[Rfam]
Nucleotides: 118
Base pairs, nucleotide, nucleotide: 001015002014003013004012005011016041017040018039020037021036023034024033046117048091049090050089051088052087053086054080055079057077058076059075061073062072063071064070096114097113098112099111100110101109
Number, partner (000 for none) and nucleotide at each position: 001015g002014a003013g004012g005011g006000c007000a008000g009000g010000c011005c012004c013003c014002u015001c016041g017040g018039g019000u020037u021036c022000g023034g024033c025000g026000a027000u028000c029000a030000g031000g032000a033024g034023c035000c036021g037020a038000u039018c040017c041016c042000a043000a044000a045000c046117c047000a048091c049090c050089a051088c052087a053086a054080g055079c056000u057077g058076c059075u060000g061073u062072c063071g064070u065000a066000a067000a068000g069000a070064g071063c072062g073061a074000u075059g076058g077057u078000g079055g080054u081000g082000a083000g084000c085000g086053u087052u088051g089050u090049g091048g092000a093000a094000a095000c096114g097113g098112c099111g100110g101109g102000a103000c104000a105000u106000g107000a108000u109101c110100c111099c112098g113097u114096c115000a116000g117046g118000u
This 118-nucleotide sequence from Paracoccus denitrificans belongs to the Rfam family "Group II catalytic intron D1-D4-2".
About the family: Group II introns are found in rRNA, tRNA and mRNA of organelles in fungi, plants and protists, and also in mRNA in bacteria.
The pairing is the family consensus, mapped onto this sequence.
Its family is annotated with Group II intron splicing in the Gene Ontology.